[Rfam]
RNA sequence: GGAUGUGAGGGCGAUCUGGCUGCGACAUCUGUCACCCCAUUGAUGGCCAGGGUUGAUUCGGCUGAUCUGGCUGGCUAGGCGGGUGUCCCCUUCCUCCCUCAACGCUCCAUGUGCGCUCGGUCCAAGAGGACGACCUCCCCGAUAGAGACGGUACCGGUCAUCGGUCAAGGGUACACGGUAGCUGCGCUCCCCUGCUAGAACCUCCAAACAAGCUCAAGGUCCAUUUGUAGGAGAACGUGGGGUAGUCAAGCUUCCAAGACUGCAGAUCGAAGAGUUU
Numbered sequence: 001g002g003a004u005g006u007g008a009g010g011g012c013g014a015u016c017u018g019g020c021u022g023c024g025a026c027a028u029c030u031g032u033c034a035c036c037c038c039a040u041u042g043a044u045g046g047c048c049a050g051g052g053u054u055g056a057u058u059c060g061g062c063u064g065a066u067c068u069g070g071c072u073g074g075c076u077a078g079g080c081g082g083g084u085g086u087c088c089c090c091u092u093c094c095u096c097c098c099u100c101a102a103c104g105c106u107c108c109a110u111g112u113g114c115g116c117u118c119g120g121u122c123c124a125a126g127a128g129g130a131c132g133a134c135c136u137c138c139c140c141g142a143u144a145g146a147g148a149c150g151g152u153a154c155c156g157g158u159c160a161u162c163g164g165u166c167a168a169g170g171g172u173a174c175a176c177g178g179u180a181g182c183u184g185c186g187c188u189c190c191c192c193u194g195c196u197a198g199a200a201c202c203u204c205c206a207a208a209c210a211a212g213c214u215c216a217a218g219g220u221c222c223a224u225u226u227g228u229a230g231g232a233g234a235a236c237g238u239g240g241g242g243u244a245g246u247c248a249a250g251c252u253u254c255c256a257a258g259a260c261u262g263c264a265g266a267u268c269g270a271a272g273a274g275u276u277u
Stems, first nucleotide, its partner, number of pairs: 001108003006101006013093002018090002024087010035074002037070003042067003046062003113152002116147003121142002128138003181251003187245002190242006202233004208228005
A member of the RNA family "7SK RNA" from Passerina amoena, 277 nucleotides long. Taxonomically the source falls in Passerina (Eukaryota, Bilateria, Gnathostomata, Archosauria). The family is grouped with related families in Rfam's "7SK clan". The base pairs follow the family's consensus structure, which is taken from published work. From the family's description: 7SK was discovered as an abundant small nuclear RNA in the mid-70s but a possible function has only recently been suggested. Two independent studies have found that 7SK RNA binds the CDK9/cyclin T complex (known as elongation factor P-TEFb). It scores 238 bits against the family's covariance model.